[Rfam]
RNA sequence: CACCCCUGGCAAUGGGCAAGGAGACACCUGAUUGGUGGUGUUGCUCUUAUAUCAGUCAGGGGCAAAGCAGAUGUACAGUCCUCAGUUCAUCCUAGCUUGAUGCCUGUGUCCUGUGUCGGUGGCCAGAGCUGUUUCAUGCCUGAGGCACAAAA
Numbered sequence: 001c002a003c004c005c006c007u008g009g010c011a012a013u014g015g016g017c018a019a020g021g022a023g024a025c026a027c028c029u030g031a032u033u034g035g036u037g038g039u040g041u042u043g044c045u046c047u048u049a050u051a052u053c054a055g056u057c058a059g060g061g062g063c064a065a066a067g068c069a070g071a072u073g074u075a076c077a078g079u080c081c082u083c084a085g086u087u088c089a090u091c092c093u094a095g096c097u098u099g100a101u102g103c104c105u106g107u108g109u110c111c112u113g114u115g116u117c118g119g120u121g122g123c124c125a126g127a128g129c130u131g132u133u134u135c136a137u138g139c140c141u142g143a144g145g146c147a148c149a150a151a152a
Stems, first nucleotide, its partner, number of pairs: 003062006013054003019048003023042006085146003099140001101138001105136002112131002116127001